This 132-nucleotide RNA from Lynx pardinus belongs to the Rfam family "Small nucleolar RNA SNORA72". Lineage of the source: Eukaryota > Metazoa > Craniata > Tetrapoda > Lynx. A search with the family's covariance model found it, with a score of 117 bits. Rfam describes the family as follows. U72 is a member of the H/ACA class of snoRNAs. Its family is annotated with nucleolus and RNA processing in the Gene Ontology.

RNA sequence: UACCACUUAAUACUACUUUAUCGAUUUUGUAAUAAUCAGGGCAGGCUAAACAUUCGCUAUAUUAAGACCAUGCAUGUGUCCCCAGACUUAGCUCUUUCCCUAGGUCUGGUUUUAUCAAUGCUGGUGAUAAAC
Numbered sequence: 001u002a003c004c005a006c007u008u009a010a011u012a013c014u015a016c017u018u019u020a021u022c023g024a025u026u027u028u029g030u031a032a033u034a035a036u037c038a039g040g041g042c043a044g045g046c047u048a049a050a051c052a053u054u055c056g057c058u059a060u061a062u063u064a065a066g067a068c069c070a071u072g073c074a075u076g077u078g079u080c081c082c083c084a085g086a087c088u089u090a091g092c093u094c095u096u097u098c099c100c101u102a103g104g105u106c107u108g109g110u111u112u113u114a115u116c117a118a119u120g121c122u123g124g125u126g127a128u129a130a131a132c
Base pairs, nucleotide, nucleotide: 004056016044017043019041021039023037024036025035026034067125068124069123070122072121073120082109083108084107085106086105087104088103089102090101091100